[Rfam]
RNA sequence: CGAGUGGGCGGGGCGAUCGCUGGUGGUACGAGUUACCACUGGAGGAAAGUCCGGGCUCCGUAGGACAGGAUGGUCGAUAACGUCGACCGGCCGCGAGGCUAGGGAAAGUGCAACAGAGAGCAAACCGCCGAACGGUGGUUCGCCGAUUCGAAAGAGUCGUCGAACCAUGCGUGGUAAGGGUGAAACGGUGCGGUAAGAGCGCACCAGCGGUCGAGGUGACUCGAUCGGCUUGGUAAACCCCAUCCGGAGCUAGACCAAACAGAAUGAAGCGGCGGUCCGUCGCGUCCCAUCAUUCGGGUAGGUCGCAAAUGAGGCGGCGAGCAAUCGUCGUGCACAGAUAAAUGAUCGUCGACGACGGCAACAGCCGCCGUCACAGAACCCGGCUUACAAGCCCACUCGCUUU
Numbered sequence: 001c002g003a004g005u006g007g008g009c010g011g012g013g014c015g016a017u018c019g020c021u022g023g024u025g026g027u028a029c030g031a032g033u034u035a036c037c038a039c040u041g042g043a044g045g046a047a048a049g050u051c052c053g054g055g056c057u058c059c060g061u062a063g064g065a066c067a068g069g070a071u072g073g074u075c076g077a078u079a080a081c082g083u084c085g086a087c088c089g090g091c092c093g094c095g096a097g098g099c100u101a102g103g104g105a106a107a108g109u110g111c112a113a114c115a116g117a118g119a120g121c122a123a124a125c126c127g128c129c130g131a132a133c134g135g136u137g138g139u140u141c142g143c144c145g146a147u148u149c150g151a152a153a154g155a156g157u158c159g160u161c162g163a164a165c166c167a168u169g170c171g172u173g174g175u176a177a178g179g180g181u182g183a184a185a186c187g188g189u190g191c192g193g194u195a196a197g198a199g200c201g202c203a204c205c206a207g208c209g210g211u212c213g214a215g216g217u218g219a220c221u222c223g224a225u226c227g228g229c230u231u232g233g234u235a236a237a238c239c240c241c242a243u244c245c246g247g248a249g250c251u252a253g254a255c256c257a258a259a260c261a262g263a264a265u266g267a268a269g270c271g272g273c274g275g276u277c278c279g280u281c282g283c284g285u286c287c288c289a290u291c292a293u294u295c296g297g298g299u300a301g302g303u304c305g306c307a308a309a310u311g312a313g314g315c316g317g318c319g320a321g322c323a324a325u326c327g328u329c330g331u332g333c334a335c336a337g338a339u340a341a342a343u344g345a346u347c348g349u350c351g352a353c354g355a356c357g358g359c360a361a362c363a364g365c366c367g368c369c370g371u372c373a374c375a376g377a378a379c380c381c382g383g384c385u386u387a388c389a390a391g392c393c394c395a396c397u398c399g400c401u402u403u
Stems, first nucleotide, its partner, number of pairs: 001399009011388001012350007020042009047386003051383005056249004064281003068245005073087005088102001089100004103240002108238002110234002125179002127175004133169002187205006207229001208227008253304004262295006274287002277284001313333001314331007

A member of the RNA family "Bacterial RNase P class A" from Rubripirellula tenax, 403 nucleotides long. Pairs were carried over by alignment from the consensus structure, which is taken from published work. Rfam classes the family as a ribozyme. The organism belongs to Rubripirellula, within Bacteria.